[Rfam]
RNA sequence: GUCCCGGACAUGACGAUAAACCGUCUGCUGCUUCGCGCCGCGCCGGACUGAUCACCGACGGCUCAACGGCGCAGGCGGGUACAACUUAAUAUGUUAACCAGCUGCCUUUUGAGCGGGAAGCUGCAGACCGGAACGGAGAAAAAAUCUUCGUCGGUAGGCGGUUUGUUUGCUAUACCCUUUUUGCGGCUGACAC
Numbered sequence: 001g002u003c004c005c006g007g008a009c010a011u012g013a014c015g016a017u018a019a020a021c022c023g024u025c026u027g028c029u030g031c032u033u034c035g036c037g038c039c040g041c042g043c044c045g046g047a048c049u050g051a052u053c054a055c056c057g058a059c060g061g062c063u064c065a066a067c068g069g070c071g072c073a074g075g076c077g078g079g080u081a082c083a084a085c086u087u088a089a090u091a092u093g094u095u096a097a098c099c100a101g102c103u104g105c106c107u108u109u110u111g112a113g114c115g116g117g118a119a120g121c122u123g124c125a126g127a128c129c130g131g132a133a134c135g136g137a138g139a140a141a142a143a144a145u146c147u148u149c150g151u152c153g154g155u156a157g158g159c160g161g162u163u164u165g166u167u168u169g170c171u172a173u174a175c176c177c178u179u180u181u182u183g184c185g186g187c188u189g190a191c192a193c
Base pairs, nucleotide, nucleotide: 028078029077030076031075032074035072036071037070038069039068040067041060042059044057045056061114062113063112064111065110066109099189100188101187102186103185104184105183120162121161122160123159124158133151134150135149136148137147138146139145
A member of the RNA family "DUF2800 RNA", 193 nucleotides long. By type it is a cis-regulatory element.